[Rfam]
RNA: Group II catalytic intron D1-D4-5
Organism: Enterococcus faecium
RNA sequence: GAGAACUAAACACACGAAUAGUCGAAUGACGGGGUAACGCCCUGAAAGGCUACUUUAAUACUCUGACUGGCAGAAACUUGAGUAAACAAGGCUCUGUCAGAAGCUCGGUGAAGUCGGCAGACAGACACCGUAACAGAUAAUGCUGACGAAAGAUUCCCAGAGGUGGGCGUUGUGUCCUAUAUGCCGGAAGUCUAUAAA
Numbered sequence: 001g002a003g004a005a006c007u008a009a010a011c012a013c014a015c016g017a018a019u020a021g022u023c024g025a026a027u028g029a030c031g032g033g034g035u036a037a038c039g040c041c042c043u044g045a046a047a048g049g050c051u052a053c054u055u056u057a058a059u060a061c062u063c064u065g066a067c068u069g070g071c072a073g074a075a076a077c078u079u080g081a082g083u084a085a086a087c088a089a090g091g092c093u094c095u096g097u098c099a100g101a102a103g104c105u106c107g108g109u110g111a112a113g114u115c116g117g118c119a120g121a122c123a124g125a126c127a128c129c130g131u132a133a134c135a136g137a138u139a140a141u142g143c144u145g146a147c148g149a150a151a152g153a154u155u156c157c158c159a160g161a162g163g164u165g166g167g168c169g170u171u172g173u174g175u176c177c178u179a180u181a182u183g184c185c186g187g188a189a190g191u192c193u194a195u196a197a198a
Stems, first nucleotide, its partner, number of pairs: 019052005031043004054190003065106002067100008077090002115186005124176005129148003136144001152171003156167004